This 97-nucleotide RNA belongs to the Rfam family "PhotoRC-II RNA".

RNA sequence: UAGUGGUACAUUCUCUCCCCAAACCGAGACCUAUAGGGAGAAUAAAUUAUGUCUCUCAUAUCCACCAGUGAAGGGAUUGGUGGAAAUAUUAAUAUCG
Number, nucleotide and partner (000 for none) at each position: 001u000002a000003g000004u000005g000006g000007u000008a000009c000010a000011u000012u000013c000014u000015c040016u039017c038018c037019c036020c000021a000022a000023a000024c000025c000026g055027a054028g053029a052030c051031c000032u000033a000034u000035a000036g019037g018038g017039a016040g015041a000042a000043u000044a000045a000046a000047u000048u000049a000050u000051g030052u029053c028054u027055c026056u000057c000058a000059u000060a000061u000062c083063c082064a081065c080066c079067a078068g077069u000070g000071a000072a000073g000074g000075g000076a000077u068078u067079g066080g065081u064082g063083g062084a000085a000086a000087u000088a000089u000090u000091a000092a000093u000094a000095u000096c000097g000